[Rfam]
RNA sequence: UUUCUACGCUAAAUUAGCCGCUUAAAAGUAGUAAUAUUUUAAGAAAAUAGAGUGAAUUGCAAUAACAUCCAUAAUAAUGUAUGGACAAUUUGCAGCGAAGCGUAUUAUAGUGAAUUUUUAGUAAUACGAACGUUCAACGACUAAUCGGUGAGCCACACUAGCAAUAAACCGGACACGAGUGCCCUACAACCAGUGAGGUUAUAUUGGUUGAUUACAUAGUCUAAACCAAUAGGUAACUAUUGG
Numbered sequence: 001u002u003u004c005u006a007c008g009c010u011a012a013a014u015u016a017g018c019c020g021c022u023u024a025a026a027a028g029u030a031g032u033a034a035u036a037u038u039u040u041a042a043g044a045a046a047a048u049a050g051a052g053u054g055a056a057u058u059g060c061a062a063u064a065a066c067a068u069c070c071a072u073a074a075u076a077a078u079g080u081a082u083g084g085a086c087a088a089u090u091u092g093c094a095g096c097g098a099a100g101c102g103u104a105u106u107a108u109a110g111u112g113a114a115u116u117u118u119u120a121g122u123a124a125u126a127c128g129a130a131c132g133u134u135c136a137a138c139g140a141c142u143a144a145u146c147g148g149u150g151a152g153c154c155a156c157a158c159u160a161g162c163a164a165u166a167a168a169c170c171g172g173a174c175a176c177g178a179g180u181g182c183c184c185u186a187c188a189a190c191c192a193g194u195g196a197g198g199u200u201a202u203a204u205u206g207g208u209u210g211a212u213u214a215c216a217u218a219g220u221c222u223a224a225a226c227c228a229a230u231a232g233g234u235a236a237c238u239a240u241u242g243g
Stems, first nucleotide, its partner, number of pairs: 001020001004017003027038003048186003053181002058094005068085005095133002108120003137222001139221005189208007228241005